[Rfam]
Nucleotides: 188
Base pairs, nucleotide, nucleotide: 005183006182007181008180009179011177012176013175014174015173016172017171018170019169020168021167022166023165024164025163026162031157032156033155034154035153044141045140046139047138048137053132056129057128060125062123063122064116065115066114067113068112069111
Number, partner (000 for none) and nucleotide at each position: 001000u002000u003000c004000a005183g006182u007181u008180g009179u010000c011177c012176u013175a014174a015173g016172u017171c018170a019169a020168a021167c022166c023165a024164u025163c026162u027000u028000a029000g030000g031157u032156u033155u034154g035153a036000c037000c038000a039000a040000u041000u042000u043000u044141g045140c046139a047138a048137a049000g050000a051000a052000u053132a054000u055000u056129a057128a058000c059000u060125u061000c062123u063122a064116c065115c066114a067113a068112a069111u070000c071000a072000a073000a074000a075000g076000a077000g078000g079000c080000g081000a082000u083000a084000c085000a086000u087000u088000u089000c090000a091000u092000a093000a094000u095000g096000u097000a098000u099000c100000u101000a102000a103000u104000g105000a106000a107000g108000c109000u110000u111069a112068u113067u114066u115065g116064g117000u118000a119000u120000c121000a122063u123062a124000a125060a126000u127000a128057u129056u130000a131000u132053u133000u134000u135000u136000a137048u138047u139046u140045g141044c142000u143000u144000u145000a146000a147000a148000u149000u150000u151000g152000g153035u154034c155033a156032a157031a158000c159000u160000c161000a162026g163025g164024a165023u166022g167021g168020u169019u170018u171017g172016g173015c174014u175013u176012a177011g178000g179009a180008c181007a182006a183005c184000u185000g186000a187000a188000c